[Rfam]
RNA sequence: CGGUGACCGCCGCCUAAUCGCCGAUGACGGCGAGCCGGGGAACCACGUCCUUGGGGUGCAUCCGCGUGAGCGGUAGGGAUCUUCCGUCCCGAACCCGUCAGCUAACCCGGUCGGCGGCUGACGGAAGGACAU
Numbered sequence: 001c002g003g004u005g006a007c008c009g010c011c012g013c014c015u016a017a018u019c020g021c022c023g024a025u026g027a028c029g030g031c032g033a034g035c036c037g038g039g040g041a042a043c044c045a046c047g048u049c050c051u052u053g054g055g056g057u058g059c060a061u062c063c064g065c066g067u068g069a070g071c072g073g074u075a076g077g078g079a080u081c082u083u084c085c086g087u088c089c090c091g092a093a094c095c096c097g098u099c100a101g102c103u104a105a106c107c108c109g110g111u112c113g114g115c116g117g118c119u120g121a122c123g124g125a126a127g128g129a130c131a132u
Stems, first nucleotide, its partner, number of pairs: 011116004018033005034111006044053002054096003062073004076090004